[Rfam]
Shown here is an 82-nucleotide RNA from Cynara cardunculus, a member of the family "Small nucleolar RNA SNORD34". snoRNA U34 is found in intron 5 of the ribosomal protein L13a gene in humans. Its family is annotated with nucleolus and RNA processing in the Gene Ontology. A reference for the family is Galardi et al. (2002), "Purified box C/D snoRNPs are able to reproduce site-specific 2'-O-methylation of target RNA in vitro", Mol Cell Biol. Lineage of the source: Eukaryota > Viridiplantae > Euphyllophyta > eudicotyledons > Cynara cardunculus subsp. cardunculus. The family's RNA type in Rfam is C/D-box small nucleolar RNA. The family is grouped with related families in Rfam's "SNORD34 clan".
RNA sequence: UACGGCCUAUGAUGAAUAGAGUUUUGCCUACAUUGUCUGAUUGUUUACUAUGCAGAGAAAACUAGACUUUUCUGAGGCCUUU
Numbered sequence: 001u002a003c004g005g006c007c008u009a010u011g012a013u014g015a016a017u018a019g020a021g022u023u024u025u026g027c028c029u030a031c032a033u034u035g036u037c038u039g040a041u042u043g044u045u046u047a048c049u050a051u052g053c054a055g056a057g058a059a060a061a062c063u064a065g066a067c068u069u070u071u072c073u074g075a076g077g078c079c080u081u082u
Stems, first nucleotide, its partner, number of pairs: 002081001004079004